[Rfam]
RNA sequence: CCAAGUGCCUCGUGUUUCCGUCUGACCCCCGACCUGACGGAAACACGGGGCACUCUC
Numbered sequence: 001c002c003a004a005g006u007g008c009c010u011c012g013u014g015u016u017u018c019c020g021u022c023u024g025a026c027c028c029c030c031g032a033c034c035u036g037a038c039g040g041a042a043a044c045a046c047g048g049g050g051c052a053c054u055c056u057c
Stems, first nucleotide, its partner, number of pairs: 004054002007051016
RNA: F6 TB sRNA